[Rfam]
RNA: L17-Actino-Proteobacteria ribosomal protein leader
Organism: Kitasatospora mediocidica
RNA sequence: CCGGGCAACAGUGCCCGGCCGCCCGUUCCGGUACCUGAUACGGCCGGAUUCGG
Numbered sequence: 001c002c003g004g005g006c007a008a009c010a011g012u013g014c015c016c017g018g019c020c021g022c023c024c025g026u027u028c029c030g031g032u033a034c035c036u037g038a039u040a041c042g043g044c045c046g047g048a049u050u051c052g053g
Stems, first nucleotide, its partner, number of pairs: 001018007023053003027048006